[Rfam]
RNA sequence: UUGCCCAUUUUGGCACUAGCACAUUUUUGCUUUUGUAUAAGGGCUUUGAGCAAUUAUGUGUAGUGCCAAUAUAGGAAA
Number, nucleotide and partner (000 for none) at each position: 001u000002u000003g000004c075005c074006c000007a072008u071009u000010u069011u068012g067013g066014c065015a064016c063017u062018a000019g061020c060021a059022c058023a057024u056025u000026u000027u053028u052029g051030c050031u049032u048033u000034u000035g000036u000037a000038u000039a000040a000041g000042g000043g000044c000045u000046u000047u000048g032049a031050g030051c029052a028053a027054u000055u000056a024057u023058g022059u021060g020061u019062a017063g016064u015065g014066c013067c012068a011069a010070u000071a008072u007073a000074g005075g004076a000077a000078a000
A member of the RNA family "mir-96 microRNA precursor family" from Chiloscyllium punctatum, 78 nucleotides long.
The base pairs follow the family's consensus structure, which was predicted with RNAalifold.
Rfam links the family to the GO terms miRNA-mediated post-transcriptional gene silencing and RISC complex.